Small nucleolar RNA SNORD70: an 88-nucleotide RNA from Bucco capensis. Rfam's curators write: snoRNA HBII-234 belongs to the C/D family of snoRNAs. It is the human orthologue of the mouse MBII-234 and is predicted to guide 2'O-ribose methylation of the small 18S rRNA on position A512. NCBI's taxonomy places the organism under Eukaryota, Bilateria, Archelosauria, Bucconidae, Bucco. The pairing is the family consensus, mapped onto this sequence. The family's RNA type in Rfam is C/D-box small nucleolar RNA.
[Rfam]
RNA sequence: UUGCCUGUUGUCAAUGAUGGAUUCUUGUUGAAGCUGAAUAUAACUGAUUUGAUUAACAUUUCGUCACUACCACUGAGACAACAGAUAU
Numbered sequence: 001u002u003g004c005c006u007g008u009u010g011u012c013a014a015u016g017a018u019g020g021a022u023u024c025u026u027g028u029u030g031a032a033g034c035u036g037a038a039u040a041u042a043a044c045u046g047a048u049u050u051g052a053u054u055a056a057c058a059u060u061u062c063g064u065c066a067c068u069a070c071c072a073c074u075g076a077g078a079c080a081a082c083a084g085a086u087a088u
Base pairs, nucleotide, nucleotide: 002087003086005084006083007082008081009080010079011078012077